The family of this 509-nucleotide RNA from Streptomyces sp. FH025 is "Saccharopolyspora sRNA 350". Rfam links the family to the GO term regulation of secondary metabolite biosynthetic process. The family's RNA type in Rfam is antisense RNA. Taxonomically the source falls in Streptomyces (Bacteria, Bacillati, Actinomycetota, Kitasatosporales).
RNA sequence: CGGACGGUGUACGGCCAGGUGCCGUCCUCCUGCUGGAGUGCCUCGUCACCGAGGUGGUCGCCGUCGGCGAGGGUGCCGAUCACCGUCUCCUCGCCGUACUUGCCGGUGCCGAGCCGGUCGAGCUUGCCGUGCGCGAUGAGGAAGACGUCGGUGAUCGGCGCUCCGGCGGAGACCAGGACGUCGCCCGGGUUGAACUGCCGCUGCACGAAGCGCCCGGCCAGCUCCGUCAGCACCGCCUCGUCCUCGAAGCCGCGCAGCACCGGCACCUCGGACAGGGUCUGCGGGACGACCCGCACCUCGGAACCGGUCUUGACGAAGCUCACCCGGCCGCGGCCGACCUUGUGGCGCAGGCGGCGGUUCACCCGGUAGGUGCCGCCGGACACCUGCACCCAGGGCAGCGUCCUGAGCAGCCAGCGCGGGCUGAUGCCCUGCAUCUGGGGGGCGGACUUGGUGGUCGUGGCGAGGUUCCGCGCGCCCGCCGUGCUCAGACUCUGCUGCUGCCGGAUCUC
Numbered sequence: 001c002g003g004a005c006g007g008u009g010u011a012c013g014g015c016c017a018g019g020u021g022c023c024g025u026c027c028u029c030c031u032g033c034u035g036g037a038g039u040g041c042c043u044c045g046u047c048a049c050c051g052a053g054g055u056g057g058u059c060g061c062c063g064u065c066g067g068c069g070a071g072g073g074u075g076c077c078g079a080u081c082a083c084c085g086u087c088u089c090c091u092c093g094c095c096g097u098a099c100u101u102g103c104c105g106g107u108g109c110c111g112a113g114c115c116g117g118u119c120g121a122g123c124u125u126g127c128c129g130u131g132c133g134c135g136a137u138g139a140g141g142a143a144g145a146c147g148u149c150g151g152u153g154a155u156c157g158g159c160g161c162u163c164c165g166g167c168g169g170a171g172a173c174c175a176g177g178a179c180g181u182c183g184c185c186c187g188g189g190u191u192g193a194a195c196u197g198c199c200g201c202u203g204c205a206c207g208a209a210g211c212g213c214c215c216g217g218c219c220a221g222c223u224c225c226g227u228c229a230g231c232a233c234c235g236c237c238u239c240g241u242c243c244u245c246g247a248a249g250c251c252g253c254g255c256a257g258c259a260c261c262g263g264c265a266c267c268u269c270g271g272a273c274a275g276g277g278u279c280u281g282c283g284g285g286a287c288g289a290c291c292c293g294c295a296c297c298u299c300g301g302a303a304c305c306g307g308u309c310u311u312g313a314c315g316a317a318g319c320u321c322a323c324c325c326g327g328c329c330g331c332g333g334c335c336g337a338c339c340u341u342g343u344g345g346c347g348c349a350g351g352c353g354g355c356g357g358u359u360c361a362c363c364c365g366g367u368a369g370g371u372g373c374c375g376c377c378g379g380a381c382a383c384c385u386g387c388a389c390c391c392a393g394g395g396c397a398g399c400g401u402c403c404u405g406a407g408c409a410g411c412c413a414g415c416g417c418g419g420g421c422u423g424a425u426g427c428c429c430u431g432c433a434u435c436u437g438g439g440g441g442g443c444g445g446a447c448u449u450g451g452u453g454g455u456c457g458u459g460g461c462g463a464g465g466u467u468c469c470g471c472g473c474g475c476c477c478g479c480c481g482u483g484c485u486c487a488g489a490c491u492c493u494g495c496u497g498c499u500g501c502c503g504g505a506u507c508u509c
Stems, first nucleotide, its partner, number of pairs: 006390006014328002018325002024320001026318001028316002037311002040308003045305001049301004054233002058229001060227002063224001065111004075103001077102003082097002085094002117222002120219001123216001126213002130209001131206001133204003138199001143196002149192002155188004160184002162178002165174002237293001240290003244286002251281002254278001258275001260271003329342002332339001352378006360372004391431007399423002403418001407415001437476002440473001442471005447465003451461002478507001480503002486497003